[Rfam]
RNA sequence: CGUGUGGUGUUUGGUGCUGGUAACGGUGAUCAAAUGGCGACACGGCCCAUGAUUGAGGU
Numbered sequence: 001c002g003u004g005u006g007g008u009g010u011u012u013g014g015u016g017c018u019g020g021u022a023a024c025g026g027u028g029a030u031c032a033a034a035u036g037g038c039g040a041c042a043c044g045g046c047c048c049a050u051g052a053u054u055g056a057g058g059u
Stems, first nucleotide, its partner, number of pairs: 001044005007038002011033005
The family of this 59-nucleotide RNA sequence from Aliagarivorans marinus is "L31-Gammaproteobacteria ribosomal protein leader". The source organism's lineage runs through Bacteria, Pseudomonadati, Gammaproteobacteria, Alteromonadales and Aliagarivorans marinus. Rfam classes the family as a cis-regulatory leader.